The family of this 137-nucleotide sequence from Triticum turgidum is "Small nucleolar RNA snoR77". The literature on the family includes a 2002 paper in Curr Biol by Marker et al., "Experimental RNomics: identification of 140 candidates for small non-messenger RNAs in the plant Arabidopsis thaliana". It scores 96 bits against the family's covariance model. Its family is annotated with nucleolus and RNA processing in the Gene Ontology.

RNA sequence: AGGCAGCCCCUUUGUCUGAUUUCAGUGGAAUGGAGGUGUUGUGUUGAUUAGAGAUUAAAUCUUCUGCUCUUCAGAUUAGCUGAGGGGUAGGCUCUGGCUUCCCUCUCUGAAGCUUGUCUAGUAGUCUUAAGAACAUU
Number, nucleotide and partner (000 for none) at each position: 001a000002g040003g039004c038005a037006g000007c036008c035009c033010c032011u000012u030013u029014g000015u028016c027017u000018g000019a000020u000021u000022u000023c000024a000025g000026u000027g016028g015029a013030a012031u000032g010033g009034a000035g008036g007037u005038g004039u003040u002041g000042u000043g000044u000045u000046g000047a000048u000049u000050a000051g000052a000053g000054a000055u000056u000057a000058a000059a000060u000061c131062u130063u129064c000065u000066g126067c000068u124069c000070u000071u000072c000073a119074g118075a117076u116077u000078a000079g113080c112081u111082g000083a000084g105085g104086g103087g000088u000089a000090g000091g000092c000093u000094c000095u000096g000097g000098c000099u000100u000101c000102c000103c086104u085105c084106u000107c000108u000109g000110a000111a081112g080113c079114u000115u000116g076117u075118c074119u073120a000121g000122u000123a000124g068125u000126c066127u000128u000129a063130a062131g061132a000133a000134c000135a000136u000137u000